Plant small nucleolar RNA U3: a 215-nucleotide RNA sequence from Morella rubra. Gene Ontology terms of the family: nucleolus and RNA processing. The family has 24 seed sequences and 3,759 matches in Rfam 15.1. Clan: U3 clan. It scores 181 bits against the family's covariance model. It is annotated as a C/D-box small nucleolar RNA. The organism belongs to Morella, within Eukaryota. On this family, see Zwieb, Nucleic Acids Res 1997: "The uRNA database". Small nucleolar RNAs (snoRNAs) are involved in the processing and modification of rRNA in the nucleolus. There are two main classes of snoRNAs: the box C/D class, and the box H/ACA class. U3 snoRNA is a member of the box C/D class. Indeed, the box C/D element is a subset of the six short sequence elements found in all U3 snoRNAs, namely boxes A, A', B, C, C', and D. The U3 snoRNA secondary structure is characterised by a small 5' domain (with boxes A and A'), and a larger 3' domain (with boxes B, C, C', and D), the two domains being linked by a single-stranded hinge.
RNA sequence: ACGACCUUACUUGAACAGGAUCUGUUCUAUAGGCCGUACCUCUGUGUCCUUGAGUUCUAAGGAGACAAGAAUUCAAGUCUGGUUGAUGAGCUACGGCCGUGUGAUCAGAGCGUGAAUAACAGCAUCAAUAGGUCCUUGGACUACUGAGGCCGUAGAGGAUCGUUCUCAUCCAUUCCUCGACUGGUUGGGAUGGUCACACGUCUGUCUGACAGACU
Numbered sequence: 001a002c003g004a005c006c007u008u009a010c011u012u013g014a015a016c017a018g019g020a021u022c023u024g025u026u027c028u029a030u031a032g033g034c035c036g037u038a039c040c041u042c043u044g045u046g047u048c049c050u051u052g053a054g055u056u057c058u059a060a061g062g063a064g065a066c067a068a069g070a071a072u073u074c075a076a077g078u079c080u081g082g083u084u085g086a087u088g089a090g091c092u093a094c095g096g097c098c099g100u101g102u103g104a105u106c107a108g109a110g111c112g113u114g115a116a117u118a119a120c121a122g123c124a125u126c127a128a129u130a131g132g133u134c135c136u137u138g139g140a141c142u143a144c145u146g147a148g149g150c151c152g153u154a155g156a157g158g159a160u161c162g163u164u165c166u167c168a169u170c171c172a173u174u175c176c177u178c179g180a181c182u183g184g185u186u187g188g189g190a191u192g193g194u195c196a197c198a199c200g201u202c203u204g205u206c207u208g209a210c211a212g213a214c215u
Stems, first nucleotide, its partner, number of pairs: 001037002003034001005033003013027006043067003047063006077214005096202001098200010109164004119153002122150002125147003129143001131142004166188003170184003174180002